[Rfam]
RNA sequence: GCGAGACGGGGUGGACCCGCGGUCCAGCGUGACCGAUAAACUGACCCCCGGACGACAGCGGGCGCAGCCCCCGAUCCGUCCACCAAAUGAUCAGCCAGCAGCCGCUGCAACCCCAGGGAG
Numbered sequence: 001g002c003g004a005g006a007c008g009g010g011g012u013g014g015a016c017c018c019g020c021g022g023u024c025c026a027g028c029g030u031g032a033c034c035g036a037u038a039a040a041c042u043g044a045c046c047c048c049c050g051g052a053c054g055a056c057a058g059c060g061g062g063c064g065c066a067g068c069c070c071c072c073g074a075u076c077c078g079u080c081c082a083c084c085a086a087a088u089g090a091u092c093a094g095c096c097a098g099c100a101g102c103c104g105c106u107g108c109a110a111c112c113c114c115a116g117g118g119a120g
Base pairs, nucleotide, nucleotide: 050081051080052079053078054077059073060072061071062070096107097106098105099104

Rfam assigns this 120-nucleotide RNA sequence from Streptomyces flaveus to the family "Streptomyces-metK RNA". It scores 110 bits against the family's covariance model. The source organism's lineage runs through Bacteria, Actinomycetota, Actinomycetes, Streptomycetaceae and Streptomyces. The base pairs follow the family's consensus structure, which is taken from published work.